Shown here is a 96-nucleotide sequence from Oncorhynchus mykiss, a member of the family "Small nucleolar SNORD12/SNORD106". The family has 8 seed sequences and 2,264 matches in Rfam 15.1. The organism belongs to Oncorhynchus, within Eukaryota. For this family Rfam cites "Identification of 13 novel human modification guide RNAs" (Vitali et al., Nucleic Acids Res, 2003).
[Rfam]
RNA sequence: AAUGUGGUUAAUGAUGCUCAACUUUUUUUCCCCGUCUUAUCGACUCUGGUGAAAACCAGCCUGAAAAAAAUUAGCCAAUUUGUCUGAAACCACAUU
Numbered sequence: 001a002a003u004g005u006g007g008u009u010a011a012u013g014a015u016g017c018u019c020a021a022c023u024u025u026u027u028u029u030c031c032c033c034g035u036c037u038u039a040u041c042g043a044c045u046c047u048g049g050u051g052a053a054a055a056c057c058a059g060c061c062u063g064a065a066a067a068a069a070a071u072u073a074g075c076c077a078a079u080u081u082g083u084c085u086g087a088a089a090c091c092a093c094a095u096u
Base pairs, nucleotide, nucleotide: 001096002095003094004093005092006091007090008089009088